Rfam assigns this 48-nucleotide RNA to the family "gut-2 RNA". It is one of the family's seed sequences.

[Rfam]
RNA sequence: GACCGUCGGCGAAGCGGCGCCGACGAAGGACCAAAUGGGGUCGAUAGC
Dot-bracket structure: ...((((((((......))))))))...((((......))))......
It is annotated as a small RNA.